Shown here is a 125-nucleotide RNA sequence from Turnera subulata, a member of the family "MIR394 microRNA precursor family". Rfam 15.1 lists 724 matches to the family in 216 species. Taxonomically the source falls in Turnera (Eukaryota, Streptophytina, Mesangiospermae, Pentapetalae). Rfam links the family to the GO terms RISC complex and miRNA-mediated post-transcriptional gene silencing.
RNA sequence: UUUGCAGAGCCAUUUUGGCAUUCUGUCCACCUCCAUUUGAGGUUCUUCUUCAUAGCUAGCCUAUUAUUCUGUCGUGUAAUCUUAUAUGAAUGGAGGUGGCCAGCUUGUCAAACUAGCUCUGAAAA
Numbered sequence: 001u002u003u004g005c006a007g008a009g010c011c012a013u014u015u016u017g018g019c020a021u022u023c024u025g026u027c028c029a030c031c032u033c034c035a036u037u038u039g040a041g042g043u044u045c046u047u048c049u050u051c052a053u054a055g056c057u058a059g060c061c062u063a064u065u066a067u068u069c070u071g072u073c074g075u076g077u078a079a080u081c082u083u084a085u086a087u088g089a090a091u092g093g094a095g096g097u098g099g100c101c102a103g104c105u106u107g108u109c110a111a112a113c114u115a116g117c118u119c120u121g122a123a124a125a
Stems, first nucleotide, its partner, number of pairs: 015111006024102002027099013
Dot-bracket structure: ..............((((((...((.(((((((((((((...............................................))))))))))))).))...))))))..............